[Rfam]
RNA sequence: UCGAUAGAUUAUUGUAUUCGACUGUAUUUACGACGUGAAACAGGGGAUUAUACUAUUUUUAAAAGGAAAGUGAAUCAUUUAACAUAAUCGACUCCU
Dot-bracket structure: ..((....(.(((((.((.((.((.((((((..(..((((.((.........)).)))).....)....)))))))).)))).))))).)..))..
RNA: MIR6152 microRNA precursor family
Organism: Nicotiana attenuata